[Rfam]
RNA sequence: CUGCGUUAGCGGUUGAAGUGGCAUCCUUUUUAUUUGUCUCCUCGAGCGCAGUCGAGAGGUUGACAAAUAAAAAGAUAUAACGGAAAACGCGACCCUUG
Numbered sequence: 001c002u003g004c005g006u007u008a009g010c011g012g013u014u015g016a017a018g019u020g021g022c023a024u025c026c027u028u029u030u031u032a033u034u035u036g037u038c039u040c041c042u043c044g045a046g047c048g049c050a051g052u053c054g055a056g057a058g059g060u061u062g063a064c065a066a067a068u069a070a071a072a073a074g075a076u077a078u079a080a081c082g083g084a085a086a087a088c089g090c091g092a093c094c095c096u097u098g
Stems, first nucleotide, its partner, number of pairs: 009090003013086002018081002023076003029071010
This 98-nucleotide RNA sequence belongs to the Rfam family "Flavo-1 RNA".
By type it is a small RNA.